[Rfam]
RNA sequence: ACACAGGUGGUUCGCAACCAUCCCACCUUUAUAAAAAACUAAGGAGAG
Numbered sequence: 001a002c003a004c005a006g007g008u009g010g011u012u013c014g015c016a017a018c019c020a021u022c023c024c025a026c027c028u029u030u031a032u033a034a035a036a037a038a039c040u041a042a043g044g045a046g047a048g
Stems, first nucleotide, its partner, number of pairs: 006027005016040001
The record is a 48-nucleotide sequence from Ligilactobacillus saerimneri, which matches "PreQ1 (pre queuosine) riboswitch aptamer" in Rfam. A reference for the family is Reader et al. (2004), "Identification of four genes necessary for biosynthesis of the modified nucleoside queuosine", J Biol Chem. The match comes from Rfam's covariance-model search (46 bits).